[Rfam]
RNA: SAM riboswitch aptamer (S box leader)
RNA sequence: AUCUUAUCAAGAGCAGGUGGAGGGACAGGCCCGAUGAAACCCGGCAACCGGCGUUUAACGACGCACGGUGCUAAUUCUUGCAGGAAAUGAUGCCCAUGGUGGCUUCAUUUGCUGAGAGAUGAGAG
Dot-bracket structure: .(((((((....(..(((...(((.[[[[)))......))))((((.((.((((......))))..))))))...(]]]](((.((((((..............)))))).)))..)))))))).